[Rfam]
RNA sequence: CGCUUUUUUGCUAUCUGCGAUAUCAAAAUUCGAACCUGCCGCAGGUUCGGGCCGAGCGCAGCGAGACAACGGAGCCGCUUGCGGCGACGGCCCGAAGGGCGAAGCCAAGUCAUCCUGCACAACCCACCA
Numbered sequence: 001c002g003c004u005u006u007u008u009u010g011c012u013a014u015c016u017g018c019g020a021u022a023u024c025a026a027a028a029u030u031c032g033a034a035c036c037u038g039c040c041g042c043a044g045g046u047u048c049g050g051g052c053c054g055a056g057c058g059c060a061g062c063g064a065g066a067c068a069a070c071g072g073a074g075c076c077g078c079u080u081g082c083g084g085c086g087a088c089g090g091c092c093c094g095a096a097g098g099g100c101g102a103a104g105c106c107a108a109g110u111c112a113u114c115c116u117g118c119a120c121a122a123c124c125c126a127c128c129a
Stems, first nucleotide, its partner, number of pairs: 016119004023112001036101001039099002046096004053063002070089002076086003
RNA: RtT RNA
Organism: Klebsiella sp. RIT-PI-d